[Rfam]
RNA sequence: CUCUUAUCAAGAGUGGUGGAGGGAAGUGCCCUAUGAAGCCACGGCAACCGUCUUUAUGACAAGGUGCCAAAUCACUGAAUUAAUUUCGAAGAUGAGAG
Numbered sequence: 001c002u003c004u005u006a007u008c009a010a011g012a013g014u015g016g017u018g019g020a021g022g023g024a025a026g027u028g029c030c031c032u033a034u035g036a037a038g039c040c041a042c043g044g045c046a047a048c049c050g051u052c053u054u055u056a057u058g059a060c061a062a063g064g065u066g067c068c069a070a071a072u073c074a075c076u077g078a079a080u081u082a083a084u085u086u087c088g089a090a091g092a093u094g095a096g097a098g
Stems, first nucleotide, its partner, number of pairs: 001098008013042005021031003025076004043068004048064002050060003072090001077087003
RNA: SAM riboswitch aptamer (S box leader)